[Rfam]
RNA sequence: GUCUUUCAAAUAGGGAGCUCAAAUAGAUGGGCUGAGAGUAGACUUGAUUAGUCUUGACCUGGAACCUGAUUUGGAUAAUGCCAACGUAGGGAAAUACAUGUCGCGAAUG
Numbered sequence: 001g002u003c004u005u006u007c008a009a010a011u012a013g014g015g016a017g018c019u020c021a022a023a024u025a026g027a028u029g030g031g032c033u034g035a036g037a038g039u040a041g042a043c044u045u046g047a048u049u050a051g052u053c054u055u056g057a058c059c060u061g062g063a064a065c066c067u068g069a070u071u072u073g074g075a076u077a078a079u080g081c082c083a084a085c086g087u088a089g090g091g092a093a094a095u096a097c098a099u100g101u102c103g104c105g106a107a108u109g
Base pairs, nucleotide, nucleotide: 008095011061012060013059014058016055017032018031019030020029021028040054041053042052043051065090066089067088068087071084072083073082074081
Shown here is a 109-nucleotide RNA from Clostridiaceae bacterium OM08-6BH, a member of the family "TPP riboswitch aptamer (THI element)". The match comes from Rfam's covariance-model search (57 bits). Lineage of the source: Bacteria > Bacillati > Bacillota > Eubacteriales > Clostridiaceae. Rfam's curators write: Vitamin B(1) in its active form thiamin pyrophosphate (TPP) is an essential coenzyme that is synthesised by coupling of pyrimidine and thiazole moieties in bacteria.